RNA sequence: CUCUGUUUCGGUUGAUUCAGGGCAAAAAGGAG
Numbered sequence: 001c002u003c004u005g006u007u008u009c010g011g012u013u014g015a016u017u018c019a020g021g022g023c024a025a026a027a028a029g030g031a032g
Base pairs, nucleotide, nucleotide: 001022002021003020004019005018008015009014